[Rfam]
RNA sequence: AAUCGGCGUACAACGAUGGGGACGUGUCCCUAAUGUGGAGCCGAGGGAAACGAGCCACAGCAAAAGCACCGAUAUAAAGGUGGAAAGCUGAAACAUCAAGUGUCGGGCAAUAGAGUUUGGUAGGUCGGUAACGAUUCGAAGAAGUUUGGCCCG
Numbered sequence: 001a002a003u004c005g006g007c008g009u010a011c012a013a014c015g016a017u018g019g020g021g022a023c024g025u026g027u028c029c030c031u032a033a034u035g036u037g038g039a040g041c042c043g044a045g046g047g048a049a050a051c052g053a054g055c056c057a058c059a060g061c062a063a064a065a066g067c068a069c070c071g072a073u074a075u076a077a078a079g080g081u082g083g084a085a086a087g088c089u090g091a092a093a094c095a096u097c098a099a100g101u102g103u104c105g106g107g108c109a110a111u112a113g114a115g116u117u118u119g120g121u122a123g124g125u126c127g128g129u130a131a132c133g134a135u136u137c138g139a140a141g142a143a144g145u146u147u148g149g150c151c152c153g
Stems, first nucleotide, its partner, number of pairs: 003044005011038001013036003018031005046056002058090004067082004104153005113146002116143003123136005
Overview:
RT-3 RNA: a 153-nucleotide RNA sequence. It is one of the family's seed sequences. Rfam classes the family as a small RNA. The family's consensus secondary structure is taken from published work.